[Rfam]
RNA sequence: AUCGCUUCUCGGCCUUUUGGCUAAGAUCAAAGUGUAGUAUCUGUUCUUUUCAGCUUAAUAUCUGAAAGUUCCCUCAUUGAGGGACCAGUAUAUUAAACUGAUUUUUGUAAAACGACGAGAUGUUCGGGGCUCGCUCCACUCUCGUCACGGGUCGGCCCGGCAUUGCAGUGCCGCCGGGAUCGGCCCUCAGAUU
Number, nucleotide and partner (000 for none) at each position: 001a000002u000003c000004g000005c000006u000007u026008c025009u024010c000011g022012g021013c020014c019015u000016u000017u000018u000019g014020g013021c012022u011023a000024a009025g008026a007027u000028c000029a000030a000031a000032g000033u000034g000035u000036a000037g000038u000039a000040u000041c000042u000043g000044u000045u000046c000047u000048u067049u066050u065051c064052a063053g062054c000055u000056u000057a000058a000059u000060a000061u000062c053063u052064g051065a050066a049067a048068g000069u000070u084071c083072c082073c081074u080075c079076a000077u000078u000079g075080a074081g073082g072083g071084a070085c000086c000087a000088g000089u000090a000091u000092a000093u000094u000095a000096a000097a000098c000099u000100g000101a000102u000103u000104u000105u000106u000107g000108u000109a000110a000111a000112a000113c000114g146115a145116c144117g143118a142119g141120a140121u000122g000123u000124u000125c000126g137127g136128g135129g134130c000131u000132c000133g000134c129135u128136c127137c126138a000139c000140u120141c119142u118143c117144g116145u115146c114147a000148c000149g186150g185151g184152u183153c182154g181155g000156c178157c177158c176159g175160g174161c173162a000163u000164u000165g000166c000167a000168g000169u000170g000171c000172c000173g161174c160175c159176g158177g157178g156179a000180u000181c154182g153183g152184c151185c150186c149187u000188c000189a000190g000191a000192u000193u000
RNA: U2 spliceosomal RNA